This 86-nucleotide sequence from Streptococcus pseudopneumoniae belongs to the Rfam family "skipping-rope RNA".
The sequence is in the family's curated seed alignment.
It is annotated as a small RNA.
RNA sequence: AAAGAUAGAGGUUGAGAAUCUGUCACCAACGCGCCACUUAUAGUGGGUCGAGAAAUGCAGGAGCCCCGACAGUCCUGCCUAUCUUG
Dot-bracket structure: .(((((((..((((.....[[[[[..)))).(.(((.......))).....)....(((((......]]]]].)))))))))))).
Numbered sequence: 001a002a003a004g005a006u007a008g009a010g011g012u013u014g015a016g017a018a019u020c021u022g023u024c025a026c027c028a029a030c031g032c033g034c035c036a037c038u039u040a041u042a043g044u045g046g047g048u049c050g051a052g053a054a055a056u057g058c059a060g061g062a063g064c065c066c067c068g069a070c071a072g073u074c075c076u077g078c079c080u081a082u083c084u085u086g
Stems, first nucleotide, its partner, number of pairs: 002085007011030004020072005032052001034046003057078005